[Rfam]
RNA sequence: AAUAUCCUGUAAAGUUUAAGUCUUAAGUUUGUACUUAAGAUAUAUAGGCAAUACAGGAUAUU
Numbered sequence: 001a002a003u004a005u006c007c008u009g010u011a012a013a014g015u016u017u018a019a020g021u022c023u024u025a026a027g028u029u030u031g032u033a034c035u036u037a038a039g040a041u042a043u044a045u046a047g048g049c050a051a052u053a054c055a056g057g058a059u060a061u062u
Stems, first nucleotide, its partner, number of pairs: 001062011014049003020041009